[Rfam]
RNA sequence: CGCCUCAUGCCUGAAAGGGCGACGGUGAAGAGCCGGAGCGAGAAGUCAGCAGAGGCCGUAGUAGCUGCCGGUUGCGGGCGAAGGGC
Number, nucleotide and partner (000 for none) at each position: 001c027002g026003c000004c000005u024006c000007a000008u021009g020010c019011c018012u017013g000014a000015a000016a000017g012018g011019g010020c009021g008022a000023c000024g005025g000026u002027g001028a000029a000030g000031a000032g000033c000034c000035g000036g000037a000038g000039c000040g000041a000042g000043a000044a000045g000046u053047c052048a000049g000050c000051a000052g047053a046054g000055g086056c085057c084058g000059u000060a000061g000062u000063a000064g079065c078066u077067g000068c000069c074070g000071g000072u000073u000074g069075c000076g000077g066078g065079c064080g000081a000082a000083g000084g057085g056086c055

A member of the RNA family "Group II catalytic intron D1-D4-1" from Denitromonas iodatirespirans, 86 nucleotides long.
NCBI's taxonomy places the organism under Bacteria, Betaproteobacteria, Rhodocyclales, Zoogloeaceae, Denitromonas.